Background:
BsrF: a 110-nucleotide RNA from Bacillus solimangrovi. The family's RNA type in Rfam is small RNA. The base pairs follow the family's consensus structure, which was predicted with WAR. For this family Rfam cites "Novel small RNA-encoding genes in the intergenic regions of Bacillus subtilis" (Saito et al., Gene, 2008).

RNA sequence: GCGAUGAGCUAAUUGUGUAAGACGAAAGAUUUGCAUUUUGCAAAACGUAUGAAUGUGGUCAUACGGUCUUUUCGCGACAAACGCCAAGGCGCCUGACCAGGACAGGCGCC
Numbered sequence: 001g002c003g004a005u006g007a008g009c010u011a012a013u014u015g016u017g018u019a020a021g022a023c024g025a026a027a028g029a030u031u032u033g034c035a036u037u038u039u040g041c042a043a044a045a046c047g048u049a050u051g052a053a054u055g056u057g058g059u060c061a062u063a064c065g066g067u068c069u070u071u072u073c074g075c076g077a078c079a080a081a082c083g084c085c086a087a088g089g090c091g092c093c094u095g096a097c098c099a100g101g102a103c104a105g106g107c108g109c110c
Stems, first nucleotide, its partner, number of pairs: 013080004023074004027069004033041002046065002049062003088110008